[Rfam]
RNA sequence: AGCUUUGCUCAGUGGCAGUAUCGUAGCCAUUGGGGUUUAUCUGAGGUGCGAUUAUUGCUAAUUGGAUUUUAAUUCAUUUAAGCAAGUAUGUUUGGGCCAGAUAUGCUUACGAUGGAUCUCUUUUGAAAGA
Numbered sequence: 001a002g003c004u005u006u007g008c009u010c011a012g013u014g015g016c017a018g019u020a021u022c023g024u025a026g027c028c029a030u031u032g033g034g035g036u037u038u039a040u041c042u043g044a045g046g047u048g049c050g051a052u053u054a055u056u057g058c059u060a061a062u063u064g065g066a067u068u069u070u071a072a073u074u075c076a077u078u079u080a081a082g083c084a085a086g087u088a089u090g091u092u093u094g095g096g097c098c099a100g101a102u103a104u105g106c107u108u109a110c111g112a113u114g115g116a117u118c119u120c121u122u123u124u125g126a127a128a129g130a
Stems, first nucleotide, its partner, number of pairs: 020052005026047003034042002082110001084108011119130004